[Rfam]
RNA sequence: CAUGGACCCGGGCCCUGCCCCGGGUGGCUCUUCCGGCCGCCGAUCCGCCGGACAACC
Dot-bracket structure: .....(((((((.....).))))))......((((((.........)))))).....

A member of the RNA family "sul1 RNA" from Roseicyclus persicicus, 57 nucleotides long. The family's consensus secondary structure is taken from published work.